[Rfam]
RNA sequence: GUUGAAGUUCCAUCCACAAAUGGCUAAGACUUAGGUCUUAUUGUAUAUGAGUCGUUGAAGUUGCAGGAGCAAUGCCCAACUUCUUGUUCUGUCAAGAGAGAAUGCAUUGCUCCUG
Numbered sequence: 001g002u003u004g005a006a007g008u009u010c011c012a013u014c015c016a017c018a019a020a021u022g023g024c025u026a027a028g029a030c031u032u033a034g035g036u037c038u039u040a041u042u043g044u045a046u047a048u049g050a051g052u053c054g055u056u057g058a059a060g061u062u063g064c065a066g067g068a069g070c071a072a073u074g075c076c077c078a079a080c081u082u083c084u085u086g087u088u089c090u091g092u093c094a095a096g097a098g099a100g101a102a103u104g105c106a107u108u109g110c111u112c113c114u115g
Stems, first nucleotide, its partner, number of pairs: 010023004064115012081098005
Dot-bracket structure: .........((((......))))........................................((((((((((((.....(((((........))))).....))))))))))))
Notes: Shown here is a 115-nucleotide RNA sequence, a member of the family "Plastid-psbA-1 3UTR RNA". The family's consensus secondary structure was predicted with LocARNA. The family's RNA type in Rfam is cis-regulatory element. A reference for the family is Richter et al. (2023), "Retrograde signaling in plants: A critical review focusing on the GUN pathway and beyond", Plant Commun. Its Rfam clan is "Plastid-psbA 3UTR RNA clan". Rfam's curators put it in the seed alignment.